[Rfam]
RNA sequence: GCUAACUGUGUUGUUAAAAGUAGCUCAGGCUAGCAAGGCUAGCAAGCCUGAGCUACUUUUGACAACACAGUUAGCU
Numbered sequence: 001g002c003u004a005a006c007u008g009u010g011u012u013g014u015u016a017a018a019a020g021u022a023g024c025u026c027a028g029g030c031u032a033g034c035a036a037g038g039c040u041a042g043c044a045a046g047c048c049u050g051a052g053c054u055a056c057u058u059u060u061g062a063c064a065a066c067a068c069a070g071u072u073a074g075c076u
Stems, first nucleotide, its partner, number of pairs: 001075008010066010022054010
This 76-nucleotide RNA from Silurus meridionalis belongs to the Rfam family "MIR6145 microRNA precursor family". The source organism's lineage runs through Eukaryota, Teleostomi, Siluroidei, Siluridae and Silurus. Its family is annotated with RISC complex and miRNA-mediated post-transcriptional gene silencing in the Gene Ontology. The family's consensus secondary structure was predicted with RNAalifold.